[Rfam]
RNA sequence: AAUCGUAGUUUACGAUAUUAUGCAGAAUCCCUCUGCGUAGACCUAGAACGUCAUAUUUAAGGAGAAAACAAAUG
Numbered sequence: 001a002a003u004c005g006u007a008g009u010u011u012a013c014g015a016u017a018u019u020a021u022g023c024a025g026a027a028u029c030c031c032u033c034u035g036c037g038u039a040g041a042c043c044u045a046g047a048a049c050g051u052c053a054u055a056u057u058u059a060a061g062g063a064g065a066a067a068a069c070a071a072a073u074g
Stems, first nucleotide, its partner, number of pairs: 002016005019039007040052003

The family of this 74-nucleotide sequence is "freshwater-2 RNA". The family's consensus secondary structure is taken from published work.